Shown here is a 125-nucleotide sequence from Dysosmobacter welbionis, a member of the family "Ribosomal protein L10 leader". It is annotated as a cis-regulatory leader. The source organism's lineage runs through Bacteria, Bacillota, Clostridia, Oscillospiraceae and Dysosmobacter. A search with the family's covariance model found it, with a score of 61 bits. This family is a putative r-protein leader autoregulatory structure found in B. subtilis and other low-GC Gram-positive bacteria. It is located in the 5' untranslated regions of mRNAs encoding ribosomal proteins L10 and L12 (rplJ-rplL). A Rho-independent transcription terminator structure that is probably involved in regulation is included at the 3' end.
[Rfam]
Nucleotides: 125
Base pairs, nucleotide, nucleotide: 028054029053030052031051032050034043035042036041081110082109083108084107085106086105087104088103089102090101091100092099
Number, partner (000 for none) and nucleotide at each position: 001000u002000a003000u004000a005000a006000u007000a008000c009000c010000a011000g012000a013000u014000g015000c016000g017000u018000u019000c020000c021000a022000a023000a024000g025000a026000c027000a028054g029053c030052a031051g032050g033000u034043g035042g036041c037000a038000u039000g040000a041036g042035c043034c044000a045000u046000a047000a048000a049000u050032c051031c052030u053029g054028c055000c056000g057000a058000g059000g060000g061000c062000g063000g064000c065000a066000a067000a068000c069000u070000u071000g072000a073000u074000u075000u076000g077000c078000u079000a080000u081110c082109c083108g084107u085106c086105c087104c088103u089102g090101u091100g092099u093000c094000u095000u096000u097000g098000c099092g100091c101090a102089c103088a104087g105086g106085g107084a108083c109082g110081g111000u112000u113000c114000c115000u116000u117000u118000u119000u120000u121000u122000g123000a124000a125000c